[Rfam]
RNA sequence: GGAGAUGACAAUGAGGAUUACAGCUCCCUCUUCUGAUUUCAGCUGAAGAUAUUUGCUGGCAGAAUCGAACCUAAAUCACUAGCCACCACUGAGUCA
Numbered sequence: 001g002g003a004g005a006u007g008a009c010a011a012u013g014a015g016g017a018u019u020a021c022a023g024c025u026c027c028c029u030c031u032u033c034u035g036a037u038u039u040c041a042g043c044u045g046a047a048g049a050u051a052u053u054u055g056c057u058g059g060c061a062g063a064a065u066c067g068a069a070c071c072u073a074a075a076u077c078a079c080u081a082g083c084c085a086c087c088a089c090u091g092a093g094u095c096a
Stems, first nucleotide, its partner, number of pairs: 006096004
Small nucleolar RNA R30/Z108: a 96-nucleotide RNA from Microthlaspi erraticum. NCBI's taxonomy places the organism under Eukaryota, Viridiplantae, Tracheophyta, rosids, Microthlaspi. A reference for the family is Marker et al. (2002), "Experimental RNomics. Identification of 140 Candidates for Small Non-Messenger RNAs in the Plant Arabidopsis thaliana", Curr Biol. The family's RNA type in Rfam is C/D-box small nucleolar RNA.